[Rfam]
RNA sequence: GAAAGUCGCUGGGGGUGCCCCCGCAACGGGCUGAGAUCAUACCCUUUGAACCUGAUUCGGCUCGUACCGACGAAGGAAAAGCGUGCCCGCCCUACC
Numbered sequence: 001g002a003a004a005g006u007c008g009c010u011g012g013g014g015g016u017g018c019c020c021c022c023g024c025a026a027c028g029g030g031c032u033g034a035g036a037u038c039a040u041a042c043c044c045u046u047u048g049a050a051c052c053u054g055a056u057u058c059g060g061c062u063c064g065u066a067c068c069g070a071c072g073a074a075g076g077a078a079a080a081g082c083g084u085g086c087c088c089g090c091c092c093u094a095c096c
Stems, first nucleotide, its partner, number of pairs: 007083004011045004016039001017031004051076003057070004
Shown here is a 96-nucleotide RNA from Longibacter salinarum, a member of the family "TPP riboswitch aptamer (THI element)".
A search with the family's covariance model found it, with a score of 67 bits.
Pairs were carried over by alignment from the consensus structure, which is taken from published work.